[Rfam]
The family of this 328-nucleotide RNA from Saccharomyces uvarum is "Nuclear RNase P". The sequence is in the family's curated seed alignment. Taxonomically the source falls in Saccharomyces (Eukaryota, saccharomyceta, Saccharomycetales, Saccharomycetaceae).
Nucleotides: 328
Base pairs, nucleotide, nucleotide: 001328002327003326004325008321009320012284013283014282015281016280017279018278025068026067027066028065029064039056040055041054042053043052044051077314078313079312080311081310104210105209106208113124114123115122116121126141127140128139130137131136151204152203153202154201155200156199169189170188285302288299289298290297291296
Number, partner (000 for none) and nucleotide at each position: 001328g002327c003326a004325g005000u006000a007000g008321c009320a010000a011000c012284u013283c014282c015281u016280a017279c018278g019000a020000u021000u022000u023000u024000a025068a026067c027066c028065u029064g030000c031000u032000u033000a034000c035000g036000a037000a038000c039056u040055a041054u042053u043052a044051g045000u046000c047000u048000g049000a050000u051044c052043u053042a054041a055040u056039a057000a058000u059000a060000c061000a062000u063000g064029c065028a066027g067026g068025u069000g070000g071000g072000a073000a074000a075000u076000u077314c078313g079312g080311u081310g082000a083000a084000a085000c086000a087000c088000a089000a090000c091000a092000a093000a094000u095000g096000a097000g098000g099000u100000u101000u102000c103000a104210g105209u106208u107000a108000u109000u110000u111000g112000g113124g114123c115122u116121c117000g118000u119000g120000a121116g122115a123114g124113c125000a126141g127140c128139c129000u130137g131136g132000g133000g134000a135000a136131c137130c138000u139128g140127g141126u142000u143000a144000u145000a146000a147000u148000a149000g150000c151204g152203g153202c154201g155200c156199u157000a158000u159000c160000a161000g162000a163000a164000a165000u166000u167000c168000a169189a170188c171000g172000c173000u174000a175000u176000c177000a178000a179000a180000u181000u182000u183000u184000g185000a186000u187000g188170g189169u190000g191000a192000u193000g194000g195000g196000a197000a198000c199156g200155g201154c202153g203152c204151u205000a206000g207000c208106a209105a210104c211000a212000a213000a214000c215000a216000u217000a218000u219000u220000u221000u222000a223000u224000g225000u226000a227000c228000c229000u230000c231000a232000c233000g234000u235000g236000u237000u238000u239000g240000a241000c242000u243000u244000a245000a246000u247000c248000a249000u250000u251000u252000a253000c254000u255000g256000g257000u258000u259000a260000a261000a262000g263000u264000c265000u266000g267000u268000u269000c270000a271000g272000u273000g274000c275000a276000a277000u278018c279017g280016u281015a282014g283013g284012a285302c286000u287000u288299c289298u290297a291296a292000g293000c294000a295000a296291u297290u298289a299288g300000u301000u302285g303000c304000a305000c306000c307000c308000g309000a310081u311080a312079c313078c314077g315000a316000u317000c318000a319000a320009u321008g322000g323000u324000a325004c326003u327002g328001u